[Rfam]
RNA sequence: UCGUCGACGAUGGUCGGCGAGAUGAAGUGGAUGUGCGUGUCGAUGCCGCCCGCGGUGAGGAUCUUGCCGUUGCCCGCGAGGAUCUCGGUCUCGGGGCCGAUGACGAGCUCGGGGUGCACCCCGUCCAUGGUGUCCGGGUUGCCCGCCUUGCCGAUGCCCGUGAUGCGGCCGUCGCGGAUGCCGACGUCGGCCUUGACGACGCCCCAGUGGUCGAUGAUGAGCGCGCCGGUGACGACGGUGUCGGGCGCGCCCUCGGCCCGGGUCGUGCGGGCCUGGCCCAUCGACUCGCGG
Number, nucleotide and partner (000 for none) at each position: 001u291002c290003g289004u000005c288006g287007a286008c000009g000010a161011u160012g159013g158014u000015c000016g074017g073018c072019g071020a070021g000022a000023u000024g000025a000026a000027g000028u000029g050030g049031a000032u048033g047034u000035g046036c045037g044038u043039g000040u000041c000042g000043a038044u037045g036046c035047c033048g032049c030050c029051c000052g000053c000054g000055g067056u066057g065058a000059g000060g000061a000062u000063c000064u000065u057066g056067c055068c000069g000070u020071u019072g018073c017074c016075c000076g151077c000078g000079a148080g147081g146082a000083u000084c000085u000086c000087g000088g142089u141090c000091u000092c138093g000094g000095g134096g133097c132098c000099g000100a000101u000102g000103a128104c000105g000106a000107g125108c000109u123110c000111g121112g120113g000114g000115u000116g000117c000118a000119c000120c112121c111122c000123g109124u000125c107126c000127a000128u103129g000130g000131u000132g097133u096134c095135c000136g000137g000138g092139u000140u000141g089142c088143c000144c000145g000146c081147c080148u079149u000150g000151c076152c000153g000154a000155u000156g000157c000158c013159c012160g011161u010162g000163a000164u000165g000166c000167g000168g277169c276170c275171g274172u000173c000174g272175c269176g268177g000178a266179u265180g264181c262182c261183g000184a000185c000186g000187u000188c000189g000190g224191c223192c000193u221194u220195g000196a000197c000198g000199a000200c000201g000202c000203c000204c213205c000206a000207g000208u000209g000210g000211u000212c000213g204214a000215u000216g000217a000218u000219g000220a194221g193222c000223g191224c190225g000226c000227c000228g258229g257230u000231g000232a000233c000234g252235a000236c000237g000238g250239u249240g248241u000242c000243g000244g000245g000246c000247g000248c240249g239250c238251c000252c234253u000254c000255g000256g000257c229258c228259c000260g000261g182262g181263u000264c180265g179266u178267g000268c176269g175270g000271g000272c174273c000274u171275g170276g169277c168278c000279c000280a000281u000282c000283g000284a000285c000286u007287c006288g005289c003290g002291g001
Rfam assigns this 291-nucleotide RNA from Streptomyces sp. YIM 121038 to the family "5' ureB small RNA". The base pairs follow the family's consensus structure, which was predicted with mfold. The organism belongs to Streptomyces, within Bacteria. It scores 83 bits against the family's covariance model.